RNA sequence: GCCGAGCCAAGUCGCGCUGGCUUGUGACCCGAGCGGGGGAUUGUUGAUGGUGGAAUGGUGGGUUCUGUUAGUUGGGCUGGAUAUGUGGUGUGCCUAAUCCGGCCUGUCCGUUCCAAGUUUAGCAGUUGAGCCAUAUGUUUCAGGCGAAGGCCCGAGUCAAAUGGCUUCCAAAGUUUGAGGGCACCGCGUCAGGCUGGUUUCACAGAGCAGCGACCACCUCUCGCUCUAAACGGUGGAAGGAUAGCAGGCUGGUGCCCCCCAUACCCUUGCAAUACCCAGCACGCAAACCACGACCAAACCACCAUCUUU
Numbered sequence: 001g002c003c004g005a006g007c008c009a010a011g012u013c014g015c016g017c018u019g020g021c022u023u024g025u026g027a028c029c030c031g032a033g034c035g036g037g038g039g040a041u042u043g044u045u046g047a048u049g050g051u052g053g054a055a056u057g058g059u060g061g062g063u064u065c066u067g068u069u070a071g072u073u074g075g076g077c078u079g080g081a082u083a084u085g086u087g088g089u090g091u092g093c094c095u096a097a098u099c100c101g102g103c104c105u106g107u108c109c110g111u112u113c114c115a116a117g118u119u120u121a122g123c124a125g126u127u128g129a130g131c132c133a134u135a136u137g138u139u140u141c142a143g144g145c146g147a148a149g150g151c152c153c154g155a156g157u158c159a160a161a162u163g164g165c166u167u168c169c170a171a172a173g174u175u176u177g178a179g180g181g182c183a184c185c186g187c188g189u190c191a192g193g194c195u196g197g198u199u200u201c202a203c204a205g206a207g208c209a210g211c212g213a214c215c216a217c218c219u220c221u222c223g224c225u226c227u228a229a230a231c232g233g234u235g236g237a238a239g240g241a242u243a244g245c246a247g248g249c250u251g252g253u254g255c256c257c258c259c260c261a262u263a264c265c266c267u268u269g270c271a272a273u274a275c276c277c278a279g280c281a282c283g284c285a286a287a288c289c290a291c292g293a294c295c296a297a298a299c300c301a302c303c304a305u306c307u308u309u
Stems, first nucleotide, its partner, number of pairs: 002039002004023006028037003043309001046306008056296002059293001061291001062289001064287001066285002071280006079266002082263004088258001090257001092255001094254001099252009108240002111238005117231006124225003128167007136159002139156003143152003168173001177220004187212003194205003